[Rfam]
RNA sequence: AUAAGUUAACAACUUAAAAUAUGUCACUUCCUUUAGUUAUACGAAUUAGCCUCAAUAAGCCGUGGAACCUUAGGCCUGUUCUAAUUGAGGAUGAUGUGUAUGAUUAAAGGAGAUGACAUAUUUUAUGUAGUUAACUUAUCU
Numbered sequence: 001a002u003a004a005g006u007u008a009a010c011a012a013c014u015u016a017a018a019a020u021a022u023g024u025c026a027c028u029u030c031c032u033u034u035a036g037u038u039a040u041a042c043g044a045a046u047u048a049g050c051c052u053c054a055a056u057a058a059g060c061c062g063u064g065g066a067a068c069c070u071u072a073g074g075c076c077u078g079u080u081c082u083a084a085u086u087g088a089g090g091a092u093g094a095u096g097u098g099u100a101u102g103a104u105u106a107a108a109g110g111a112g113a114u115g116a117c118a119u120a121u122u123u124u125a126u127g128u129a130g131u132u133a134a135c136u137u138a139u140c141u
Stems, first nucleotide, its partner, number of pairs: 001139010012128002015125011029111015045095003050090005
Rfam assigns this 141-nucleotide RNA from Anisodus acutangulus to the family "MIR7993 microRNA precursor family".
NCBI's taxonomy places the organism under Eukaryota, Streptophytina, Tracheophyta, Euphyllophyta, Anisodus.
The family has 4 seed sequences and 59 matches in Rfam 15.1.
Rfam links the family to the GO terms miRNA-mediated post-transcriptional gene silencing and RISC complex.